[Rfam]
RNA sequence: CCAAAACUAAGACACCGAGCUUAUAGCCCUAAGUCGCAAGAUAUGGACUACAAGCCGAAUAAAUGGCUGAUGUUUAAGCGAUUUAUUCCAAGGAUAGCUGAGAAAUUGCCUGUCCUCUCGUAUUCAGAAAGGGUCUUUCAUUUUAACUU
Numbered sequence: 001c002c003a004a005a006a007c008u009a010a011g012a013c014a015c016c017g018a019g020c021u022u023a024u025a026g027c028c029c030u031a032a033g034u035c036g037c038a039a040g041a042u043a044u045g046g047a048c049u050a051c052a053a054g055c056c057g058a059a060u061a062a063a064u065g066g067c068u069g070a071u072g073u074u075u076a077a078g079c080g081a082u083u084u085a086u087u088c089c090a091a092g093g094a095u096a097g098c099u100g101a102g103a104a105a106u107u108g109c110c111u112g113u114c115c116u117c118u119c120g121u122a123u124u125c126a127g128a129a130a131g132g133g134u135c136u137u138u139c140a141u142u143u144u145a146a147c148u149u
Base pairs, nucleotide, nucleotide: 003143004142011135012134013133015132016131019055020054021053022052024050025049026048028046029045033042034041035040057088058087059086060085061084062083063082064081091116092115093114094113095112096111097110099108100107101106117127118126